[Rfam]
Rfam assigns this 182-nucleotide RNA sequence from Hesseltinella vesiculosa to the family "U11 spliceosomal RNA". Lineage of the source: Eukaryota > Opisthokonta > Mucoromycotina > Mucoromycetes > Hesseltinella. A reference for the family is Montzka and Steitz (1988), "Additional low-abundance human small nuclear ribonucleoproteins: U11, U12, etc", Proc Natl Acad Sci U S A. Clan: U1 clan. The base pairs follow the family's consensus structure, which is taken from published work.
RNA sequence: AAAAAGGGCAUUUUGUACACCAGGCGAAAGUCUGGCUUGCAACAGCACUGCAGAAAAAAGAUCCGCCUUUCUUCUCUUUGUUGUGGUAUGGCAAUCAAGACAUAUCAAGUGCAUAAUUUUUGUGAAACCCGGGGUAGAUUCACUCUUUGGCUUCGCUUUUCCUUGCCGGAAUCUAUCCCACC
Numbered sequence: 001a002a003a004a005a006g007g008g009c010a011u012u013u014u015g016u017a018c019a020c021c022a023g024g025c026g027a028a029a030g031u032c033u034g035g036c037u038u039g040c041a042a043c044a045g046c047a048c049u050g051c052a053g054a055a056a057a058a059a060g061a062u063c064c065g066c067c068u069u070u071c072u073u074c075u076c077u078u079u080g081u082u083g084u085g086g087u088a089u090g091g092c093a094a095u096c097a098a099g100a101c102a103u104a105u106c107a108a109g110u111g112c113a114u115a116a117u118u119u120u121u122g123u124g125a126a127a128c129c130c131g132g133g134g135u136a137g138a139u140u141c142a143c144u145c146u147u148u149g150g151c152u153u154c155g156c157u158u159u160u161c162c163u164u165g166c167c168g169g170a171a172u173c174u175a176u177c178c179c180a181c182c
Base pairs, nucleotide, nucleotide: 008112009111010110011109012108013042014041015040016039017038043083044082045081046080047079050076053073054072084107085106086105087104088103089102090101131179132178133177134176135175136174137173138172140171143168